This 607-nucleotide RNA from Callithrix jacchus belongs to the Rfam family "c-sis internal ribosome entry site (IRES)". Its family is annotated with ribosome binding in the Gene Ontology. A search with the family's covariance model found it, with a score of 504 bits. The family has 10 seed sequences and 123 matches in Rfam 15.1. About the family: This family represents the c-sis 5'-UTR which contains three modules that can individually mediate internal ribosome entry. However, the full length sequence is required for maximal IRES activity. It is thought that the three IRES elements are somehow responsive to cellular changes and act to regulate the level of translation.
[Rfam]
RNA sequence: CGGAGCAGCCGCAGCUCGCAACCCGCAGAGGACGCCCAGAGCGGCGAGCCAGCAGGCAGGCAGACGGACCGACGGACUCCCGCCGCGUCCACCUGUCGGCCGAACCCGGCCAAGGGCAGAGUGGGCAUGCCGCGUGCGCGCGCGGAGCAGCCGUGCCCGCCGACCGGGGACCCGCGCCAGGGUGCACACGCUCCCGCCCCCCCACCCGACCCGGGCGGGAGUUUGCACCUCUCCCUGCCCGGGUACUCGAGCCGCCAGUUGCAAAGCCAACUUUGGAAAAAGUUUUUUGGGGGAGACUUGGGCCUUGAGGUGUCCAGCCCUGCGCUUUCCUAUUUUUGGGGCCUUUUCAGAAAAUGUUGCAAAAAUGCUAAGCCGGCGGGCAGAGGAAAACGCCUUUAGCCUGCGAGUGAAGACGAACCAUCGACUGCCGUGUUCCUUUUCCUCUUGGAGGUUGGAGUCCCCUGGGCGCCCCCACACGGCUAGACGCCUCGGUAUGUUCGCGAUGCAGCGCCCCCCUCACUCGGGCUCGGGAUCCGCCCAGGUAGCGGCCUCAGACCCAGGUCCUGUGCCCAGGUCCUCCCCUGCCCCCCAGCAACCGAGCCGAGGA
Numbered sequence: 001c002g003g004a005g006c007a008g009c010c011g012c013a014g015c016u017c018g019c020a021a022c023c024c025g026c027a028g029a030g031g032a033c034g035c036c037c038a039g040a041g042c043g044g045c046g047a048g049c050c051a052g053c054a055g056g057c058a059g060g061c062a063g064a065c066g067g068a069c070c071g072a073c074g075g076a077c078u079c080c081c082g083c084c085g086c087g088u089c090c091a092c093c094u095g096u097c098g099g100c101c102g103a104a105c106c107c108g109g110c111c112a113a114g115g116g117c118a119g120a121g122u123g124g125g126c127a128u129g130c131c132g133c134g135u136g137c138g139c140g141c142g143c144g145g146a147g148c149a150g151c152c153g154u155g156c157c158c159g160c161c162g163a164c165c166g167g168g169g170a171c172c173c174g175c176g177c178c179a180g181g182g183u184g185c186a187c188a189c190g191c192u193c194c195c196g197c198c199c200c201c202c203c204a205c206c207c208g209a210c211c212c213g214g215g216c217g218g219g220a221g222u223u224u225g226c227a228c229c230u231c232u233c234c235c236u237g238c239c240c241g242g243g244u245a246c247u248c249g250a251g252c253c254g255c256c257a258g259u260u261g262c263a264a265a266g267c268c269a270a271c272u273u274u275g276g277a278a279a280a281a282g283u284u285u286u287u288u289g290g291g292g293g294a295g296a297c298u299u300g301g302g303c304c305u306u307g308a309g310g311u312g313u314c315c316a317g318c319c320c321u322g323c324g325c326u327u328u329c330c331u332a333u334u335u336u337u338g339g340g341g342c343c344u345u346u347u348c349a350g351a352a353a354a355u356g357u358u359g360c361a362a363a364a365a366u367g368c369u370a371a372g373c374c375g376g377c378g379g380g381c382a383g384a385g386g387a388a389a390a391c392g393c394c395u396u397u398a399g400c401c402u403g404c405g406a407g408u409g410a411a412g413a414c415g416a417a418c419c420a421u422c423g424a425c426u427g428c429c430g431u432g433u434u435c436c437u438u439u440u441c442c443u444c445u446u447g448g449a450g451g452u453u454g455g456a457g458u459c460c461c462c463u464g465g466g467c468g469c470c471c472c473c474a475c476a477c478g479g480c481u482a483g484a485c486g487c488c489u490c491g492g493u494a495u496g497u498u499c500g501c502g503a504u505g506c507a508g509c510g511c512c513c514c515c516c517u518c519a520c521u522c523g524g525g526c527u528c529g530g531g532a533u534c535c536g537c538c539c540a541g542g543u544a545g546c547g548g549c550c551u552c553a554g555a556c557c558c559a560g561g562u563c564c565u566g567u568g569c570c571c572a573g574g575u576c577c578u579c580c581c582c583u584g585c586c587c588c589c590c591a592g593c594a595a596c597c598g599a600g601c602c603g604a605g606g607a
Stems, first nucleotide, its partner, number of pairs: 002268002005262005011255002014252005020247001025234001027232005033184005039178001041177003046172001049169001055111003059106002065102003069099007079087001081085001115165002121160009130145006187225002190222010202208001270283005289583007296575008309521004317516001324515001338512002341509002359368002372404002375401003380397001382395002385391001407506003412501001414500005421492004425483002427480007434456003438451005457467004523564004529558003533555002536552001540551004587606002590603001592601002
Dot-bracket structure: .((.(((((.((.(((((.(....(.(((((.(((((.(.(((..(..(.....(((.((....(((.(((((((...(.(...).).....))))))))))..))..)))...((....(((((((((((((((....))))))......)))))))))...))...)..)..)))).)))))..((.((((((((((..(.....)....)))))))))).))..))))).)............)))))).))..)))))....)).(((((....))))).....(((((((((((((((.....((((....(......(.............((.((................((......))...((.(((..(.((.(.....)..)).).))).))..(((..(.(((((..((((((((((((((((.(((((....)))))..)))((((...))))......))))))).)).....))))...))))))..))).)).))..)).)))).((((..(((.((.(...((((....))))).)))))..))))...)))))))).)))))))...((.(.((......)).).)).